[Rfam]
RNA sequence: GGUGUGGCUGUGAUUACAAAGUAAAUCUGAAUGCUUGAUUGUAUUUAUGCAAUCGGGUAUAAGCAUGACAGACCCUUUUACACCCAUAGAAUAUGAGCCACA
Numbered sequence: 001g002g003u004g005u006g007g008c009u010g011u012g013a014u015u016a017c018a019a020a021g022u023a024a025a026u027c028u029g030a031a032u033g034c035u036u037g038a039u040u041g042u043a044u045u046u047a048u049g050c051a052a053u054c055g056g057g058u059a060u061a062a063g064c065a066u067g068a069c070a071g072a073c074c075c076u077u078u079u080a081c082a083c084c085c086a087u088a089g090a091a092u093a094u095g096a097g098c099c100a101c102a
Stems, first nucleotide, its partner, number of pairs: 003102002006099004

The family of this 102-nucleotide RNA from Rosa chinensis is "Small nucleolar RNA snoR8a". For this family Rfam cites "Multiple snoRNA gene clusters from Arabidopsis" (Brown et al., RNA, 2001). The organism belongs to Rosa, within Eukaryota. Rfam links the family to the GO terms RNA processing and nucleolus. Rfam classes the family as a C/D-box small nucleolar RNA. Rfam 15.1 lists 956 matches to the family in 245 species.